[Rfam]
RNA sequence: CGCCGCCGCAUGGGAGAGUUCCGGAGCAUCAGUCCGGACGCCGAAGGAGCAAUACCUCCCCGUCAAUCUCUCAGGCACCGAGGACCGUGCGGGCUAC
Numbered sequence: 001c002g003c004c005g006c007c008g009c010a011u012g013g014g015a016g017a018g019u020u021c022c023g024g025a026g027c028a029u030c031a032g033u034c035c036g037g038a039c040g041c042c043g044a045a046g047g048a049g050c051a052a053u054a055c056c057u058c059c060c061c062g063u064c065a066a067u068c069u070c071u072c073a074g075g076c077a078c079c080g081a082g083g084a085c086c087g088u089g090c091g092g093g094c095u096a097c
Stems, first nucleotide, its partner, number of pairs: 006092008020038006040076003043072002047070003054063002
The record is a 97-nucleotide RNA from Rhodococcus spelaei, which matches "Glycine riboswitch aptamer" in Rfam. Lineage of the source: Bacteria > Actinomycetota > Actinomycetes > Mycobacteriales > Rhodococcus. Its Rfam clan is "Glycine riboswitch clan". About the family: This family represents the bacterial glycine riboswitch. The match comes from Rfam's covariance-model search (61 bits).